[Rfam]
RNA sequence: CACACGCAGGGUUUGGGAUGAACCGGGAGAAAUCCGGUCCGUUCCGCCGGUGGCGCCGCAAACGCGGUGCUGAUUGCCUUGCGGGGGUUCAACCGGAAAAGGAUCAAAGGC
Numbered sequence: 001c002a003c004a005c006g007c008a009g010g011g012u013u014u015g016g017g018a019u020g021a022a023c024c025g026g027g028a029g030a031a032a033u034c035c036g037g038u039c040c041g042u043u044c045c046g047c048c049g050g051u052g053g054c055g056c057c058g059c060a061a062a063c064g065c066g067g068u069g070c071u072g073a074u075u076g077c078c079u080u081g082c083g084g085g086g087g088u089u090c091a092a093c094c095g096g097a098a099a100a101g102g103a104u105c106a107a108a109g110g111c
Stems, first nucleotide, its partner, number of pairs: 001086001003084001005083007015045002023037002026035001052071008

Shown here is a 111-nucleotide RNA sequence from Allorhizobium borbori, a member of the family "rpsB sRNA". NCBI's taxonomy places the organism under Bacteria, Pseudomonadati, Alphaproteobacteria, Hyphomicrobiales, Allorhizobium. For this family Rfam cites "Identification of candidate structured RNAs in the marine organism 'Candidatus Pelagibacter ubique'" (Meyer et al., BMC Genomics, 2009).